Overview
Rfam assigns this 101-nucleotide RNA sequence from Corchorus capsularis to the family "MIR2275 microRNA precursor family".
RNA sequence: GUGGUGCAUGUGAGAGUUGGAGGGAAUUAAACCAAAGUAUUCCAUUAAGGCAUUAUGCCUCUAUUUUGGUUUAAUUUCCUCCAAUAUCUCACCUCCAAUUC
Numbered sequence: 001g002u003g004g005u006g007c008a009u010g011u012g013a014g015a016g017u018u019g020g021a022g023g024g025a026a027u028u029a030a031a032c033c034a035a036a037g038u039a040u041u042c043c044a045u046u047a048a049g050g051c052a053u054u055a056u057g058c059c060u061c062u063a064u065u066u067u068g069g070u071u072u073a074a075u076u077u078c079c080u081c082c083a084a085u086a087u088c089u090c091a092c093c094u095c096c097a098a099u100u101c
Stems, first nucleotide, its partner, number of pairs: 005097002008094001011091004016085006023078008032069005
Dot-bracket structure: ....((.(..((((.((((((.((((((((.(((((............................))))).)))))))).))))))..))))..).))....
NCBI's taxonomy places the organism under Eukaryota, Euphyllophyta, rosids, Malvaceae, Corchorus. The family has 13 seed sequences and 785 matches in Rfam 15.1.